[Rfam]
RNA: mir-2513 microRNA precursor family
RNA sequence: AGCCACAACCCACUCCCCACCUUGGAUCUUGUUAAGGGAUAAUAAUAAUAAUAAUAAUAAUUAUUAUUAUUAUUAUUAUUAUCCCUUAACAAGAUCCAAGGUGGGGAGUGGGUUGUGGCU
Numbered sequence: 001a002g003c004c005a006c007a008a009c010c011c012a013c014u015c016c017c018c019a020c021c022u023u024g025g026a027u028c029u030u031g032u033u034a035a036g037g038g039a040u041a042a043u044a045a046u047a048a049u050a051a052u053a054a055u056a057a058u059a060a061u062u063a064u065u066a067u068u069a070u071u072a073u074u075a076u077u078a079u080u081a082u083c084c085c086u087u088a089a090c091a092a093g094a095u096c097c098a099a100g101g102u103g104g105g106g107a108g109u110g111g112g113u114u115g116u117g118g119c120u
Base pairs, nucleotide, nucleotide: 001120002119003118004117005116006115007114008113009112010111011110012109013108014107015106016105017104018103019102020101021100022099023098024097025096026095027094028093030091031090033088034087035086036085037084038083039082040081041080042079043078044077045076046075047074